RNA sequence: CGCGUUUUUCGCCCAGGCGGAGCUCGACCGCCGCUGCAAGUCCUGAAGCAGUUCAUCGAUCAGCACCGGGACCGCUUCGGGGUCGAGCCGAUCUGCAGGGUGCUGCAGAUCGCUCCG
Numbered sequence: 001c002g003c004g005u006u007u008u009u010c011g012c013c014c015a016g017g018c019g020g021a022g023c024u025c026g027a028c029c030g031c032c033g034c035u036g037c038a039a040g041u042c043c044u045g046a047a048g049c050a051g052u053u054c055a056u057c058g059a060u061c062a063g064c065a066c067c068g069g070g071a072c073c074g075c076u077u078c079g080g081g082g083u084c085g086a087g088c089c090g091a092u093c094u095g096c097a098g099g100g101u102g103c104u105g106c107a108g109a110u111c112g113c114u115c116c117g
Stems, first nucleotide, its partner, number of pairs: 016032005078117005089112002092109007
RNA: ALIL pseudoknot
Organism: Dyella sp. AD56